RNA sequence: GGCGGGUCCCCUCGCAUAAGAGCUCUGCUAACCUGGUCAGGUCGGGAACGAAGCAGCCACGGCGGAAUACUCUUAGUGCCGAGGAUAAGGCUCGCCGAA
Numbered sequence: 001g002g003c004g005g006g007u008c009c010c011c012u013c014g015c016a017u018a019a020g021a022g023c024u025c026u027g028c029u030a031a032c033c034u035g036g037u038c039a040g041g042u043c044g045g046g047a048a049c050g051a052a053g054c055a056g057c058c059a060c061g062g063c064g065g066a067a068u069a070c071u072c073u074u075a076g077u078g079c080c081g082a083g084g085a086u087a088a089g090g091c092u093c094g095c096c097g098a099a
Stems, first nucleotide, its partner, number of pairs: 004093005010084005015076001017075006024066006034059004042051003
RNA: Bacterial small signal recognition particle RNA